[Rfam]
RNA sequence: ACAAUCGCGGCAGUCUCUGGGGAGUAGCCCGCCCGGCGCCAUGCGCGCACGGGGGCAUGCGUCAACAAACUUGGGCCCUCGCGGCCCAUGGCGCACGCGGUUCAGCCGGACUGGGCGAGACCAUUGACUGUGCACCGAUCCCAAGGCCGGAGUCGGGGCGCAGUCAAUGCUGUCUGUCCACCUAU
Numbered sequence: 001a002c003a004a005u006c007g008c009g010g011c012a013g014u015c016u017c018u019g020g021g022g023a024g025u026a027g028c029c030c031g032c033c034c035g036g037c038g039c040c041a042u043g044c045g046c047g048c049a050c051g052g053g054g055g056c057a058u059g060c061g062u063c064a065a066c067a068a069a070c071u072u073g074g075g076c077c078c079u080c081g082c083g084g085c086c087c088a089u090g091g092c093g094c095a096c097g098c099g100g101u102u103c104a105g106c107c108g109g110a111c112u113g114g115g116c117g118a119g120a121c122c123a124u125u126g127a128c129u130g131u132g133c134a135c136c137g138a139u140c141c142c143a144a145g146g147c148c149g150g151a152g153u154c155g156g157g158g159c160g161c162a163g164u165c166a167a168u169g170c171u172g173u174c175u176g177u178c179c180a181c182c183u184a185u
Stems, first nucleotide, its partner, number of pairs: 032053003055098002058095007072088005104185001
Dot-bracket structure: ...............................(((................))).((.(((((((.......(((((.......)))))))))))).)).....(................................................................................)

About this RNA
Rfam assigns this 185-nucleotide sequence from Paracidovorax avenae to the family "Manganese Mn2+ riboswitch aptamer (yybP-ykoY)". The base pairs follow the family's consensus structure. About the family: This RNA was originally discovered in E. coli during a large scale screen and was named SraF. The family was later found to exist upstream of related families of protein genes in many bacteria, including the the yybP and ykoK genes in B. subtilis. The specific functions of these proteins are unknown, but this structured RNA element may be involved in their genetic regulation as a riboswitch.